[Rfam]
RNA: Bacterial large subunit ribosomal RNA, nucleotides 2118 to 2704
RNA sequence: CCCGCAGCUAGACGGAAAGACCCUGUGCACCUUUACUGCAGCUUGGCAUUGAGUUGUGGUGUAAUAUGUGUAGGAUAGGUGGGAGGCUAUGAAGUGUGGACGCUAGUUCACAUGGAGCCGUCCUUGAAAUACCACCCUUAUUAUACUGGGACUCUAACCUGCUCCCGUUAUCCGGGAGAGGGACAGUGUCUGGCAGGCAGUUUGACUGGGGCGGUCGCCUCCCAAAAGGUAACGGAGGCGCCCAAAGGUUCCCUCAGGCUGGACGGAAAUCAGCCGCAGAGUGUAAAGGCAAAAGGGAGCUUGACUGCAAGAGAGACAUCUCGAGCAGGUACGAAAGUAGGGCUUAGUGAUCCGGUGGCUCUGAGUGGAAGGGCCAUCGCUCAACGGAUAAAAGGUACGCCGGGGAUAACAGGCUUAUCGCGUCCAAGAGUUCACAUCGACGACGCGGUUUGGCACCUCGAUGUCGACUCAUCGCAUCCUGGGGCUGAAGUAGGUCCCAAGGGUUCGGCUGUUCGCCGAUUAAAGCGGUACGAGAGUUGGGUUCAGAACGUCGUGAGACAGUUCGGUCCCUAUCUGCUGUGGGCGCA
Number, nucleotide and partner (000 for none) at each position: 001c583002c582003c581004g580005c579006a578007g577008c576009u000010a575011g574012a573013c000014g570015g569016a000017a000018a000019g000020a000021c000022c404023c403024u402025g401026u000027g400028c399029a396030c395031c394032u393033u392034u000035a201036c200037u199038g198039c000040a000041g000042c193043u192044u000045g190046g189047c188048a187049u000050u000051g154052a153053g152054u151055u150056g000057u148058g147059g146060u145061g144062u143063a142064a141065u140066a139067u000068g137069u000070g000071u000072a000073g000074g000075a000076u000077a000078g136079g135080u134081g133082g132083g000084a000085g119086g118087c117088u000089a000090u000091g000092a000093a000094g113095u112096g111097u110098g109099g108100a107101c106102g000103c000104u000105a000106g101107u100108u099109c098110a097111c096112a095113u094114g000115g000116a000117g087118c086119c085120g000121u000122c000123c000124u000125u000126g000127a000128a000129a000130u000131a000132c082133c081134a080135c079136c078137c068138u000139u066140a065141u064142u063143a062144u061145a060146c059147u058148g057149g000150g055151a054152c053153u052154c051155u000156a000157a000158c181159c180160u179161g000162c178163u177164c176165c175166c174167g173168u000169u000170a000171u000172c000173c167174g166175g165176g164177a163178g162179a160180g159181g158182g000183a000184c000185a000186g000187u048188g047189u046190c045191u000192g043193g042194c000195a000196g000197g000198c038199a037200g036201u035202u000203u000204g216205a215206c214207u213208g000209g000210g000211g000212c000213g207214g206215u205216c204217g239218c238219c237220u236221c235222c234223c000224a000225a000226a000227a000228g000229g000230u000231a000232a000233c000234g222235g221236a220237g219238g218239c217240g385241c000242c342243c341244a000245a000246a000247g000248g300249u299250u298251c297252c296253c295254u280255c279256a000257g275258g274259c273260u272261g271262g270263a000264c000265g000266g000267a000268a000269a000270u262271c261272a260273g259274c258275c257276g000277c000278a000279g255280a254281g290282u289283g000284u000285a000286a000287a000288g000289g282290c281291a000292a000293a000294a000295g253296g252297g251298a250299g249300c248301u000302u000303g000304a000305c328306u327307g326308c325309a000310a000311g322312a321313g320314a000315g000316a000317c000318a000319u000320c313321u312322c311323g000324a000325g308326c307327a306328g305329g000330u339331a338332c337333g000334a000335a000336a000337g332338u331339a330340g000341g243342g242343c000344u000345u000346a000347g000348u000349g000350a000351u000352c000353c379354g378355g377356u376357g375358g374359c373360u000361c372362u371363g000364a000365g000366u000367g000368g000369a000370a000371g362372g361373g359374c358375c357376a356377u355378c354379g353380c000381u000382c000383a000384a000385c240386g000387g000388a000389u000390a000391a000392a033393a032394g031395g030396u029397a000398c000399g028400c027401c025402g024403g023404g022405g000406a000407u000408a000409a000410c000411a000412g000413g454414c453415u452416u000417a451418u448419c447420g446421c445422g444423u443424c442425c000426a000427a000428g438429a437430g000431u000432u000433c000434a000435c000436a000437u429438c428439g000440a000441c000442g424443a423444c422445g421446c420447g419448g418449u000450u000451u417452g415453g414454c413455a000456c000457c000458u000459c000460g000461a000462u000463g000464u000465c540466g538467a537468c536469u535470c532471a529472u528473c527474g526475c525476a000477u000478c503479c502480u000481g498482g497483g496484g495485c494486u493487g000488a000489a000490g000491u000492a000493g486494g485495u484496c483497c482498c481499a000500a000501g000502g479503g478504u000505u519506c518507g517508g516509c515510u000511g000512u000513u000514c000515g509516c508517c507518g506519a505520u000521u000522a000523a000524a000525g475526c474527g473528g472529u471530a000531c000532g470533a000534g000535a469536g468537u467538u466539g000540g465541g000542u000543u000544c000545a000546g564547a563548a562549c561550g559551u558552c557553g000554u000555g000556a000557g552558a551559c550560a000561g549562u548563u547564c546565g000566g000567u000568c000569c015570c014571u000572a000573u012574c011575u010576g008577c007578u006579g005580u004581g003582g002583g001584c000585g000586c000587a000